[Rfam]
The record is a 99-nucleotide RNA sequence from Victivallis vadensis, which matches "Bacterial small signal recognition particle RNA" in Rfam. By type it is a non-coding RNA gene. For this family Rfam cites "SRPDB: Signal Recognition Particle Database" (Rosenblad et al., Nucleic Acids Res, 2003).
RNA sequence: GGCCGGACCCCGUGCGUUGUCAAAAGUGCCAACCGAGUCAGGUGGGGAACCAAGCAGCUCUACGCGAUUUUUUGACAGGCCACGAGUAAUCUGACCCGG
Dot-bracket structure: ...((((.(.(((((..((((((((.(((.....((((....(((....)))....))))...))).))..)))))))..)))).)...))))......